[Rfam]
RNA sequence: GGCCUCCUGAUGCUUACCACAGGCUGGGUUUGUAUAUACAAAGAGGAGGCAGAGUAAGCCUACCCCAUGUACAACUCAGCCCAGGACCUGUGUCUGGUUAGUGUUGUGAAUGGGGAGACAUGG
Numbered sequence: 001g002g003c004c005u006c007c008u009g010a011u012g013c014u015u016a017c018c019a020c021a022g023g024c025u026g027g028g029u030u031u032g033u034a035u036a037u038a039c040a041a042a043g044a045g046g047a048g049g050c051a052g053a054g055u056a057a058g059c060c061u062a063c064c065c066c067a068u069g070u071a072c073a074a075c076u077c078a079g080c081c082c083a084g085g086a087c088c089u090g091u092g093u094c095u096g097g098u099u100a101g102u103g104u105u106g107u108g109a110a111u112g113g114g115g116a117g118a119c120a121u122g123g
Stems, first nucleotide, its partner, number of pairs: 002050007021033001063115006077101001079099001081097005
A member of the RNA family "Small nucleolar RNA SNORA51" from Urocitellus parryii, 123 nucleotides long.
A search with the family's covariance model found it, with a score of 100 bits.
Its family is annotated with nucleolus and RNA processing in the Gene Ontology.
Pairs were carried over by alignment from the consensus structure, which was predicted with PFOLD.
The family has 9 seed sequences and 2,121 matches in Rfam 15.1.
The source organism's lineage runs through Eukaryota, Gnathostomata, Boreoeutheria, Marmotini and Urocitellus.